[Rfam]
RNA sequence: UCUUUUUAAUUUCUAAACUCUCUGCAUAAAGGCAUACAUGCCUUCCUGAUAUAAAGAUUAUUAUAUUUUCUUUUAGAAUAAUUCCUUACCUCAGUUAACUGGCUGUGUUAUGCCAGUUUUUUGGCAUAACACUGCCAGUUAACUGAGGUAAGGAACACAGUGCAGUGUUUUCACUGAG
Numbered sequence: 001u002c003u004u005u006u007u008a009a010u011u012u013c014u015a016a017a018c019u020c021u022c023u024g025c026a027u028a029a030a031g032g033c034a035u036a037c038a039u040g041c042c043u044u045c046c047u048g049a050u051a052u053a054a055a056g057a058u059u060a061u062u063a064u065a066u067u068u069u070c071u072u073u074u075a076g077a078a079u080a081a082u083u084c085c086u087u088a089c090c091u092c093a094g095u096u097a098a099c100u101g102g103c104u105g106u107g108u109u110a111u112g113c114c115a116g117u118u119u120u121u122u123g124g125c126a127u128a129a130c131a132c133u134g135c136c137a138g139u140u141a142a143c144u145g146a147g148g149u150a151a152g153g154a155a156c157a158c159a160g161u162g163c164a165g166u167g168u169u170u171u172c173a174c175u176g177a178g
Base pairs, nucleotide, nucleotide: 005055006054007053008052021032022031023030037048038047040045057082058081059080060079061078062077064075065074088149089148090147091146092145093144094143095142096141097140098139099138101136102135103134105132106131107130108129109128112125113124114123115122151175152174153172155170157168158167159166